The family of this 119-nucleotide RNA sequence from Brassica napus is "MIR9563 microRNA precursor family".
The base pairs follow the family's consensus structure, which was predicted with RNAalifold.
Gene Ontology terms of the family: RISC complex and miRNA-mediated post-transcriptional gene silencing.
[Rfam]
RNA sequence: GGGAUAUAAGAAACUGUCUUUUGACUUUAACUAAAAAAGCUAAGAACCACUCUUAGAUAUUUAAGGGUCGGUUUUUAGUUUUUUUAGUUAAAAGUUAAGAGACGGUUUUUUUAUAUUCC
Dot-bracket structure: ((((((((((((((((((((((((((((((((((((((.(((((((.........................))))))).)))))))))))).)))))))))))))))).))))))))))